[Rfam]
RNA sequence: GAAUUAUCUUUGAUGAUGAUAAUUAGACUUUGUCAUCCUUGCACUUUGAUUCAUAAUGAAGAAAACAACGGGGAAAGCAUUUUUAAGAUGCUU
Numbered sequence: 001g002a003a004u005u006a007u008c009u010u011u012g013a014u015g016a017u018g019a020u021a022a023u024u025a026g027a028c029u030u031u032g033u034c035a036u037c038c039u040u041g042c043a044c045u046u047u048g049a050u051u052c053a054u055a056a057u058g059a060a061g062a063a064a065a066c067a068a069c070g071g072g073g074a075a076a077g078c079a080u081u082u083u084u085a086a087g088a089u090g091c092u093u
Stems, first nucleotide, its partner, number of pairs: 002093002005090004
RNA: Small nucleolar RNA snoR26